[Rfam]
RNA: MIR2629 microRNA precursor family
Organism: Medicago truncatula
RNA sequence: UGUUCAGUUUUCCUCGGCAGUUAACUACCGAGGUUUUCUUCGACAGUUUUCUUCGGCAGUUAACUGUCGAGGAUCUU
Numbered sequence: 001u002g003u004u005c006a007g008u009u010u011u012c013c014u015c016g017g018c019a020g021u022u023a024a025c026u027a028c029c030g031a032g033g034u035u036u037u038c039u040u041c042g043a044c045a046g047u048u049u050u051c052u053u054c055g056g057c058a059g060u061u062a063a064c065u066g067u068c069g070a071g072g073a074u075c076u077u
Stems, first nucleotide, its partner, number of pairs: 011073002014070013028056006